[Rfam]
RNA: mir-290 microRNA precursor family
RNA sequence: GGGAUACACAAAAUGAGGGCACUUCCUGUUUUCCUUCUGGAAAGUGCUCCCAUUUUUGUGUGUCCU
Numbered sequence: 001g002g003g004a005u006a007c008a009c010a011a012a013a014u015g016a017g018g019g020c021a022c023u024u025c026c027u028g029u030u031u032u033c034c035u036u037c038u039g040g041a042a043a044g045u046g047c048u049c050c051c052a053u054u055u056u057u058g059u060g061u062g063u064c065c066u
Stems, first nucleotide, its partner, number of pairs: 004063009013053003017049007024041003